Rfam assigns this 87-nucleotide RNA from Triticum aestivum to the family "MIR1120/MIR1122 microRNA precursor family". It scores 93 bits against the family's covariance model. The family's consensus secondary structure was predicted with RNAalifold. On this family, see Yao et al., Genome Biol 2007: "Cloning and characterization of microRNAs from wheat (Triticum aestivum L.)". Gene Ontology terms of the family: RISC complex and miRNA-mediated post-transcriptional gene silencing.
RNA sequence: CUACUCCCUUCGUCCCAUAAUGUAAGACGUUUUUGCAAGCUAUGUUAGCUUGCAAAAACGUCUUACAUUAUGGGACGAAAGGAGUAG
Numbered sequence: 001c002u003a004c005u006c007c008c009u010u011c012g013u014c015c016c017a018u019a020a021u022g023u024a025a026g027a028c029g030u031u032u033u034u035g036c037a038a039g040c041u042a043u044g045u046u047a048g049c050u051u052g053c054a055a056a057a058a059c060g061u062c063u064u065a066c067a068u069u070a071u072g073g074g075a076c077g078a079a080a081g082g083a084g085u086a087g
Stems, first nucleotide, its partner, number of pairs: 003085003007081001009079003013075005019069023